[Rfam]
Shown here is a 136-nucleotide RNA sequence from Kurthia sp. 11kri321, a member of the family "FMN riboswitch aptamer (RFN element)". The RFN element is a highly conserved domain that is found frequently in the 5'-untranslated regions of prokaryotic mRNAs that encode for flavin mononucleotide (FMN) biosynthesis and transport proteins. Lineage of the source: Bacteria > Bacillati > Bacilli > Caryophanaceae > Kurthia. The match comes from Rfam's covariance-model search (125 bits).
RNA sequence: GUUCAUCUUCGGGGCAGGGUGUAAUUCCCGACCGGCGGUAAUGAAGUGUUUAACAUUUCUCAGCCCGCGAACCUUAACAGGUUGAUUUGGUGCAACUCCAAAGCCGACAGUAUAGUCUGGAUGGGAGAAGGUGAAG
Number, nucleotide and partner (000 for none) at each position: 001g000002u000003u134004c133005a132006u131007c130008u129009u128010c127011g000012g000013g000014g000015c000016a000017g029018g028019g027020u000021g000022u000023a000024a000025u000026u000027c019028c018029c017030g000031a116032c115033c106034g105035g068036c067037g066038g065039u000040a000041a000042u000043g000044a000045a000046g000047u000048g000049u000050u000051u000052a000053a000054c000055a000056u000057u000058u000059c000060u000061c000062a000063g104064c103065c038066c037067g036068c035069g000070a000071a082072c081073c080074u000075u000076a000077a000078c000079a000080g073081g072082u071083u000084g000085a000086u102087u101088u100089g099090g098091u000092g000093c000094a000095a000096c000097u000098c090099c089100a088101a087102a086103g064104c063105c034106g033107a000108c119109a118110g117111u000112a000113u000114a000115g032116u031117c110118u109119g108120g000121a000122u000123g000124g000125g000126a000127g010128a009129a008130g007131g006132u005133g004134a003135a000136g000